c-di-GMP-I riboswitch aptamer: a 93-nucleotide RNA sequence from Brevibacillus borstelensis. Rfam's curators write: GEMM was predicted in a large-scale screen for bacterial structured RNA regulatory elements. A search with the family's covariance model found it, with a score of 86 bits.

[Rfam]
RNA sequence: UUCUGAAAAAGGCAAACCCACUGAAAGGCGGGGACGCAAAGCCACGGGUCUAAGGCUGCAUAAAAAUGCGGCUACGACAGCCGGGUUGCCAGA
Number, nucleotide and partner (000 for none) at each position: 001u000002u000003c000004u000005g000006a000007a000008a000009a000010a000011g000012g037013c036014a000015a000016a000017c032018c031019c030020a000021c028022u027023g000024a000025a000026a000027g022028g021029c000030g019031g018032g017033g000034a000035c000036g013037c012038a000039a000040a087041g086042c085043c084044a000045c083046g082047g081048g078049u077050c076051u000052a000053a000054g000055g072056c071057u070058g069059c068060a067061u066062a000063a000064a000065a000066a061067u060068g059069c058070g057071g056072c055073u000074a000075c000076g050077a049078c048079a000080g000081c047082c046083g045084g043085g042086u041087u040088g000089c000090c000091a000092g000093a000